Rfam assigns this 139-nucleotide RNA sequence from Saimiri boliviensis to the family "Small Cajal body specific RNA 21".
The literature on the family includes a 2002 paper in EMBO J by Darzacq et al., "Cajal body-specific small nuclear RNAs: a novel class of 2'-O-methylation and pseudouridylation guide RNAs".
Gene Ontology terms of the family: RNA processing, nucleolus and Cajal body.

[Rfam]
RNA sequence: UGGCUCGAUUUCCUGGGGGGUGGGCUCAGCCUACUCCACCUCCCCUCAGCCGAGCCUAGAGUAGAGGGGCCAGGCAGCCUCCCCAGGGGAGAGACGUUUGAGCAAGGCGCCUCUCCGUGGCUGUCCCAGCCUCACAUUU
Number, nucleotide and partner (000 for none) at each position: 001u000002g056003g055004c054005u053006c052007g051008a000009u000010u000011u000012c000013c000014u000015g044016g043017g042018g041019g040020g039021u038022g037023g036024g035025c000026u000027c000028a000029g000030c000031c000032u000033a000034c000035u024036c023037c022038a021039c020040c019041u018042c017043c016044c015045c000046u000047c000048a000049g000050c000051c007052g006053a005054g004055c003056c002057u000058a000059g000060a000061g000062u000063a000064g000065a000066g133067g132068g131069g130070c129071c000072a000073g126074g125075c000076a000077g000078c120079c119080u000081c000082c000083c000084c000085a000086g113087g112088g111089g110090a000091g000092a000093g000094a000095c000096g000097u000098u000099u000100g000101a000102g000103c000104a000105a000106g000107g000108c000109g000110c089111c088112u087113c086114u000115c000116c000117g000118u000119g079120g078121c000122u000123g000124u000125c074126c073127c000128a000129g070130c069131c068132u067133c066134a000135c000136a000137u000138u000139u000
Pairs were carried over by alignment from the consensus structure, which was predicted with RNAalifold. scaRNAs are a specific class of small nuclear RNAs which localise to the Cajal bodies and guide the modification of RNA polymerase II transcribed spliceosomal RNAs U1, U2, U4, U5 and U12. ACA68 (SCARNA21) is a member of the H/ACA class of snoRNAs that guide the sites of modification of uridines to pseudouridines. This snoRNA was identified by computational screening and its expression in mouse experimentally verified by Northern blot and primer extension analysis.